[Rfam]
RNA sequence: UAAAAAUACGCGCUUAAUCGUAAGAACGGGAGAACCGGUUAAUUUUAUAAUCUUCUGGUUAUAAAAUUUUUAAAGGGGGGCUGUUCAGUCCUAUCCUUUUGGGGUGAAUUAUGCUUUGUGGCUUAAAGCUUCAAGGUAUCUAGGGUUAUCUUUCGAUCCGAAUCCGUCAGCUAAUCUCGUAAGCGUUGGAAGAGAAGGU
Numbered sequence: 001u002a003a004a005a006a007u008a009c010g011c012g013c014u015u016a017a018u019c020g021u022a023a024g025a026a027c028g029g030g031a032g033a034a035c036c037g038g039u040u041a042a043u044u045u046u047a048u049a050a051u052c053u054u055c056u057g058g059u060u061a062u063a064a065a066a067u068u069u070u071u072a073a074a075g076g077g078g079g080g081c082u083g084u085u086c087a088g089u090c091c092u093a094u095c096c097u098u099u100u101g102g103g104g105u106g107a108a109u110u111a112u113g114c115u116u117u118g119u120g121g122c123u124u125a126a127a128g129c130u131u132c133a134a135g136g137u138a139u140c141u142a143g144g145g146u147u148a149u150c151u152u153u154c155g156a157u158c159c160g161a162a163u164c165c166g167u168c169a170g171c172u173a174a175u176c177u178c179g180u181a182a183g184c185g186u187u188g189g190a191a192g193a194g195a196a197g198g199u
Stems, first nucleotide, its partner, number of pairs: 011185004018025002026180006036101002102165003111139008143159004